The family of this 67-nucleotide sequence from Sulfobacillus thermosulfidooxidans is "Fluoride riboswitch aptamer (crcB RNA motif)". On this family, see Zhao et al., Nat Chem Biol 2017: "An excited state underlies gene regulation of a transcriptional riboswitch". The family's consensus secondary structure is taken from published work. Taxonomically the source falls in Sulfobacillus thermosulfidooxidans (Bacteria, Bacillota, Clostridia, Eubacteriales).

[Rfam]
RNA sequence: AUGCAAACGGGCCAUGGAGCUGGCCUUAUUAAAUGUCGUUCUCGCGGCUAAUGGCUCCUGAUUAUUU
Number, nucleotide and partner (000 for none) at each position: 001a000002u000003g000004c000005a000006a000007a000008c000009g000010g025011g024012c023013c022014a000015u000016g058017g057018a056019g055020c054021u053022g013023g012024c011025c010026u000027u000028a000029u000030u000031a000032a000033a000034u000035g048036u047037c046038g045039u000040u000041c000042u000043c000044g000045c038046g037047g036048c035049u000050a000051a000052u000053g021054g020055c019056u018057c017058c016059u000060g000061a000062u000063u000064a000065u000066u000067u000